[Rfam]
RNA sequence: GUAUAAGAUGGAUCAACUAUGCUUAAAUGAUUAAAUCACAGUCGUGACUUGAUUAUAUCAUCGAGUCUUUAAAUGUGCAAUAUGAAAGAACCUGGCGAUAUGAUCCAGGUUCUUUUUUGA
Numbered sequence: 001g002u003a004u005a006a007g008a009u010g011g012a013u014c015a016a017c018u019a020u021g022c023u024u025a026a027a028u029g030a031u032u033a034a035a036u037c038a039c040a041g042u043c044g045u046g047a048c049u050u051g052a053u054u055a056u057a058u059c060a061u062c063g064a065g066u067c068u069u070u071a072a073a074u075g076u077g078c079a080a081u082a083u084g085a086a087a088g089a090a091c092c093u094g095g096c097g098a099u100a101u102g103a104u105c106c107a108g109g110u111u112c113u114u115u116u117u118u119g120a
Stems, first nucleotide, its partner, number of pairs: 034074001036072001038070001040066001042064003084116012
Annotation
A member of the RNA family "Bacillus sRNA ncr1015" from Paenibacillus cremeus, 120 nucleotides long. For this family Rfam cites "Identification of regulatory RNAs in Bacillus subtilis" (Irnov et al., Nucleic Acids Res, 2010).